[Rfam]
RNA: Glycine riboswitch aptamer
RNA sequence: GCACGUCACGCGGGAGAGCCCGUGCAGCGUCACGGCGCCGAAGGGGCAAUUCCUCCCCGGAACCUCUCAGGCACCAGGACCGCGUGACCCAG
Numbered sequence: 001g002c003a004c005g006u007c008a009c010g011c012g013g014g015a016g017a018g019c020c021c022g023u024g025c026a027g028c029g030u031c032a033c034g035g036c037g038c039c040g041a042a043g044g045g046g047c048a049a050u051u052c053c054u055c056c057c058c059g060g061a062a063c064c065u066c067u068c069a070g071g072c073a074c075c076a077g078g079a080c081c082g083c084g085u086g087a088c089c090c091a092g
Stems, first nucleotide, its partner, number of pairs: 006087008020035004037072003040068002044066003050060002